Rfam assigns this 74-nucleotide RNA from Ornithorhynchus anatinus to the family "mir-1421 microRNA precursor family".
The source organism's lineage runs through Eukaryota, Bilateria, Teleostomi, Sarcopterygii and Ornithorhynchus.

[Rfam]
RNA sequence: CGGUGUGUGAAUGUCCCACGUCAUGCUGUGUGGUGGUAGAACGUGUUACAUAGUGUGUGACCUUCCUAUACAGC
Numbered sequence: 001c002g003g004u005g006u007g008u009g010a011a012u013g014u015c016c017c018a019c020g021u022c023a024u025g026c027u028g029u030g031u032g033g034u035g036g037u038a039g040a041a042c043g044u045g046u047u048a049c050a051u052a053g054u055g056u057g058u059g060a061c062c063u064u065c066c067u068a069u070a071c072a073g074c
Base pairs, nucleotide, nucleotide: 003071004070005069006068007067009065010064011063013061014060015059017057018056019055020054021053023051024050025049